[Rfam]
Rfam assigns this 54-nucleotide RNA sequence from Panax japonicus to the family "Plastid-psbA-4 3UTR RNA". Rfam's curators put it in the seed alignment. NCBI's taxonomy places the organism under Eukaryota, Viridiplantae, Embryophyta, Tracheophyta, Panax. For this family Rfam cites "Retrograde signaling in plants: A critical review focusing on the GUN pathway and beyond" (Richter et al., Plant Commun, 2023).
RNA sequence: AAAAGGAGCAAUAACCUCUUUCUUGUUCUAUCAAGAGGGCGGUAUUGCUCCUUU
Number, nucleotide and partner (000 for none) at each position: 001a000002a054003a053004a052005g051006g050007a049008g048009c047010a046011a045012u044013a043014a000015c000016c000017u000018c039019u000020u037021u036022c035023u034024u033025g032026u000027u000028c000029u000030a000031u000032c025033a024034a023035g022036a021037g020038g000039g018040c000041g000042g000043u013044a012045u011046u010047g009048c008049u007050c006051c005052u004053u003054u002